[Rfam]
RNA sequence: CACGCGAGUACGCCGAAUCCUGCCCAUCGCGUCGCCGGGACACCUGACCACCAGGGGGCAGGGGCGGGGGACCCAGGUUUUUCUGCCGUCUCCCACGGCUAGGGGUGAAGCCGACCGCCGGAGCGAUCCGAGCGGGCGGCCGGGCCAACCUCACCGGUCCGAACCCGACAGCUCACCUCGCAGGCGUGCGGAGAGGGACGUC
Numbered sequence: 001c002a003c004g005c006g007a008g009u010a011c012g013c014c015g016a017a018u019c020c021u022g023c024c025c026a027u028c029g030c031g032u033c034g035c036c037g038g039g040a041c042a043c044c045u046g047a048c049c050a051c052c053a054g055g056g057g058g059c060a061g062g063g064g065c066g067g068g069g070g071a072c073c074c075a076g077g078u079u080u081u082u083c084u085g086c087c088g089u090c091u092c093c094c095a096c097g098g099c100u101a102g103g104g105g106u107g108a109a110g111c112c113g114a115c116c117g118c119c120g121g122a123g124c125g126a127u128c129c130g131a132g133c134g135g136g137c138g139g140c141c142g143g144g145c146c147a148a149c150c151u152c153a154c155c156g157g158u159c160c161g162a163a164c165c166c167g168a169c170a171g172c173u174c175a176c177c178u179c180g181c182a183g184g185c186g187u188g189c190g191g192a193g194a195g196g197g198a199c200g201u202c
Base pairs, nucleotide, nucleotide: 011186012185013184014183018063019062020061021060022059023058024057025056064181065180066179067178068177069176074102103166104165105164111139112138113137142160143159144158145157

Rfam assigns this 202-nucleotide sequence from Kitasatospora acidiphila to the family "c-di-AMP riboswitch aptamer (ydaO/yuaA leader)". The match comes from Rfam's covariance-model search (52 bits).